The record is a 78-nucleotide sequence from Lucilia cuprina, which matches "mir-932 microRNA precursor family" in Rfam.
The family has 14 seed sequences and 136 matches in Rfam 15.1.
For this family Rfam cites "Evolutionary flux of canonical microRNAs and mirtrons in Drosophila" (Berezikov et al., Nat Genet, 2010).
The base pairs follow the family's consensus structure, which was predicted with RNAalifold.
Gene Ontology terms of the family: RISC complex and miRNA-mediated post-transcriptional gene silencing.
Lineage of the source: Eukaryota > Eumetazoa > Pterygota > Endopterygota > Lucilia.
RNA sequence: GAAGUCUUCAAUUCCGUAGUGCAUUGCAGUUUGUUAUUUAAAAAAUUACUGCAAGCAUUGUGGAAAUGAUGAUUUUAU
Numbered sequence: 001g002a003a004g005u006c007u008u009c010a011a012u013u014c015c016g017u018a019g020u021g022c023a024u025u026g027c028a029g030u031u032u033g034u035u036a037u038u039u040a041a042a043a044a045a046u047u048a049c050u051g052c053a054a055g056c057a058u059u060g061u062g063g064a065a066a067u068g069a070u071g072a073u074u075u076u077a078u
Stems, first nucleotide, its partner, number of pairs: 005072002008069003013064005020057003024054005